[Rfam]
RNA: Small nucleolar RNA snoR136
Organism: Capsicum annuum
RNA sequence: AUGCUUUGCUAAUUACUAUUAUUUUUAUGGGUCACAAUUUUUGUUGUGUGUGACUACUGUUACAAGUGAAGCUAAAAAAGAUGUUCCCCUCGCUAUCCUUUGCGCUUAAUUUUUGUGGUGUAUUUGGACGUUGGGGCACUACAUUA
Numbered sequence: 001a002u003g004c005u006u007u008g009c010u011a012a013u014u015a016c017u018a019u020u021a022u023u024u025u026u027a028u029g030g031g032u033c034a035c036a037a038u039u040u041u042u043g044u045u046g047u048g049u050g051u052g053a054c055u056a057c058u059g060u061u062a063c064a065a066g067u068g069a070a071g072c073u074a075a076a077a078a079a080g081a082u083g084u085u086c087c088c089c090u091c092g093c094u095a096u097c098c099u100u101u102g103c104g105c106u107u108a109a110u111u112u113u114u115g116u117g118g119u120g121u122a123u124u125u126g127g128a129c130g131u132u133g134g135g136g137c138a139c140u141a142c143a144u145u146a
Base pairs, nucleotide, nucleotide: 002074003072004071005070008067009066010065013064017062018061020059021058028056029055030054033050034049035048036047083139084138086136087135088134089133091130092129096128097127098126105118107117108116